[Rfam]
RNA sequence: UGCCGCCGGGCAAGUCCUGCACAACCAGCUCCUGCUUAAUCCUCCAGGGCGGGAACGCAGCAAAGGUACGCGGUCGUAGCGGUGUGAUGUAGGUAGCUUGCCCUUUU
Numbered sequence: 001u002g003c004c005g006c007c008g009g010g011c012a013a014g015u016c017c018u019g020c021a022c023a024a025c026c027a028g029c030u031c032c033u034g035c036u037u038a039a040u041c042c043u044c045c046a047g048g049g050c051g052g053g054a055a056c057g058c059a060g061c062a063a064a065g066g067u068a069c070g071c072g073g074u075c076g077u078a079g080c081g082g083u084g085u086g087a088u089g090u091a092g093g094u095a096g097c098u099u100g101c102c103c104u105u106u107u
Stems, first nucleotide, its partner, number of pairs: 008103008017092005022086002024083002

Shown here is a 107-nucleotide RNA sequence from Winogradskyella sp. KYW1333, a member of the family "Bacteroidales small SRP". It is annotated as a non-coding RNA gene. Its Rfam clan is "SRP clan". The source organism's lineage runs through Bacteria, Flavobacteriia, Flavobacteriales, Flavobacteriaceae and Winogradskyella. The base pairs follow the family's consensus structure, which is taken from published work.